RNA sequence: UGGUGCCCAACGUGGGGCGUGGAUAAGGGGGAAUUCGAGAGGGAAGAGGUGUCUAAUCGUUUGGCUGGAAAAAAGCGAAAGUCAGUUCAAAAAAGAUCUCUGCGGGAGCCUGCCCGCACCGCUCUUAAAGGUACAGUAGCGCCUAACUAUGGGACAAGAAUUAAGUAAGCAUAAAGUUUUUGUUAAGCAAUUAAAAGAAGCUUUAAAGACACAGGGAGUAAAAGUUAAGAGUAAUGAUCUUUUUAAGUUUUUUGACUUUAUUAAGGACACUGCCCGU
Numbered sequence: 001u002g003g004u005g006c007c008c009a010a011c012g013u014g015g016g017g018c019g020u021g022g023a024u025a026a027g028g029g030g031g032a033a034u035u036c037g038a039g040a041g042g043g044a045a046g047a048g049g050u051g052u053c054u055a056a057u058c059g060u061u062u063g064g065c066u067g068g069a070a071a072a073a074a075g076c077g078a079a080a081g082u083c084a085g086u087u088c089a090a091a092a093a094a095g096a097u098c099u100c101u102g103c104g105g106g107a108g109c110c111u112g113c114c115c116g117c118a119c120c121g122c123u124c125u126u127a128a129a130g131g132u133a134c135a136g137u138a139g140c141g142c143c144u145a146a147c148u149a150u151g152g153g154a155c156a157a158g159a160a161u162u163a164a165g166u167a168a169g170c171a172u173a174a175a176g177u178u179u180u181u182g183u184u185a186a187g188c189a190a191u192u193a194a195a196a197g198a199a200g201c202u203u204u205a206a207a208g209a210c211a212c213a214g215g216g217a218g219u220a221a222a223a224g225u226u227a228a229g230a231g232u233a234a235u236g237a238u239c240u241u242u243u244u245a246a247g248u249u250u251u252u253u254g255a256c257u258u259u260a261u262u263a264a265g266g267a268c269a270c271u272g273c274c275c276g277u
Stems, first nucleotide, its partner, number of pairs: 006031003013025002036048001086131002090126001098121001101118005137157001139155001142153004162205003165201002212254008222240001224238004263277001265275002268272001
RNA: Mason-Pfizer monkey virus packaging signal
Organism: Sciurus vulgaris